A member of the RNA family "SAM riboswitch aptamer (S box leader)" from Chlorobium phaeovibrioides, 110 nucleotides long. Lineage of the source: Bacteria > Pseudomonadati > Chlorobiota > Chlorobiaceae > Chlorobium phaeovibrioides. The family has 457 seed sequences and 9,625 matches in Rfam 15.1. Rfam's curators write: The SAM riboswitch is found upstream of a number of genes which code for proteins involved in methionine or cysteine biosynthesis in Gram-positive bacteria. The SAM riboswitch acts at the level of transcription termination control. Rfam's curators put it in the seed alignment.
[Rfam]
RNA sequence: CUAUCAUCGAGAAAGGUGGAGGGACUGGCCCUGAGAAGCCUUGGCAACCGUCAUUCCUGUAAUGAUUGGUGCCAAUUCCAUCCUGGCAGGGACGCCGGGAAAGAUGACGG
Numbered sequence: 001c002u003a004u005c006a007u008c009g010a011g012a013a014a015g016g017u018g019g020a021g022g023g024a025c026u027g028g029c030c031c032u033g034a035g036a037a038g039c040c041u042u043g044g045c046a047a048c049c050g051u052c053a054u055u056c057c058u059g060u061a062a063u064g065a066u067u068g069g070u071g072c073c074a075a076u077u078c079c080a081u082c083c084u085g086g087c088a089g090g091g092a093c094g095c096c097g098g099g100a101a102a103g104a105u106g107a108c109g110g
Base pairs, nucleotide, nucleotide: 001110002109004107005106006105007104008103013042014041015040016039017038021031022030023029026080027079028078043073044072045071046070048069049068051065052064053063054062077102082099083098084097085096086095087094